[Rfam]
RNA sequence: CCUGGGAGCAGUGGUUCUGCCUGUAGUCCCAGCUACUGCAGGAGGCUGACCCUGCCAGAUCGCUUGAGACCAGGAGAUCUGGGCGGCAGUGCGCUGUGCUGAGCAGGCGUCCACACUAAUGCCGGCGUCAAUAUAAUGAGCCCCAGGGAGCUGUCGGGCCCACCAGGUUGACUAAGGAGGGGUGAACCGGCCCAGGUCGGAAACGGAGCAGGUCAAAGCUCCCGUGCCGGUCAGUAGCGGGAUUGUGCCUGUGAAUAGGCAUGGCAGCAUGGCCUGGGCAACAUAGAGAGAUGCAGGUUCUU
Numbered sequence: 001c002c003u004g005g006g007a008g009c010a011g012u013g014g015u016u017c018u019g020c021c022u023g024u025a026g027u028c029c030c031a032g033c034u035a036c037u038g039c040a041g042g043a044g045g046c047u048g049a050c051c052c053u054g055c056c057a058g059a060u061c062g063c064u065u066g067a068g069a070c071c072a073g074g075a076g077a078u079c080u081g082g083g084c085g086g087c088a089g090u091g092c093g094c095u096g097u098g099c100u101g102a103g104c105a106g107g108c109g110u111c112c113a114c115a116c117u118a119a120u121g122c123c124g125g126c127g128u129c130a131a132u133a134u135a136a137u138g139a140g141c142c143c144c145a146g147g148g149a150g151c152u153g154u155c156g157g158g159c160c161c162a163c164c165a166g167g168u169u170g171a172c173u174a175a176g177g178a179g180g181g182g183u184g185a186a187c188c189g190g191c192c193c194a195g196g197u198c199g200g201a202a203a204c205g206g207a208g209c210a211g212g213u214c215a216a217a218g219c220u221c222c223c224g225u226g227c228c229g230g231u232c233a234g235u236a237g238c239g240g241g242a243u244u245g246u247g248c249c250u251g252u253g254a255a256u257a258g259g260c261a262u263g264g265c266a267g268c269a270u271g272g273c274c275u276g277g278g279c280a281a282c283a284u285a286g287a288g289a290g291a292u293g294c295a296g297g298u299u300c301u302u
Stems, first nucleotide, its partner, number of pairs: 002045002004022003008018001010016002027043003048300002051297005060289002063286002068279001070277005079272003083268002086265002089262003094258004099253001103252008111241002114239001116237003121231008129170004134165001137162002140159004144153003172176001179222005189214004197206003
RNA: Metazoan signal recognition particle RNA
Organism: Rhinopomastus cyanomelas